The family of this 107-nucleotide RNA from Winslowiella iniecta is "t44 RNA".
This family consists of a number of bacterial RNA genes of between 135 and 170 bases in length. The t44 gene has been identified in several species of enteric bacteria but homologs have also been identified in Pseudomonas and Coxiella species. The t44 gene is found between the map and rpsB genes in all species in the full alignment apart from Shigella flexneri. The function of this RNA is unknown.
Rfam classes the family as a small RNA.

[Rfam]
RNA sequence: CUCAUUAUGUGUAAAUAACACACACGUAUCGACACAUACGCCGGGGUGCCUGCGAAGAGCGUUAUCGCUGUUCAGGGUCGGUUGUAUGGGAUAUGUGGAGGCCCAAC
Numbered sequence: 001c002u003c004a005u006u007a008u009g010u011g012u013a014a015a016u017a018a019c020a021c022a023c024a025c026g027u028a029u030c031g032a033c034a035c036a037u038a039c040g041c042c043g044g045g046g047u048g049c050c051u052g053c054g055a056a057g058a059g060c061g062u063u064a065u066c067g068c069u070g071u072u073c074a075g076g077g078u079c080g081g082u083u084g085u086a087u088g089g090g091a092u093a094u095g096u097g098g099a100g101g102c103c104c105a106a107c
Stems, first nucleotide, its partner, number of pairs: 023097008035088005040082004048078004
Description: The match comes from Rfam's covariance-model search (80 bits). Lineage of the source: Bacteria > Pseudomonadati > Pseudomonadota > Enterobacterales > Winslowiella.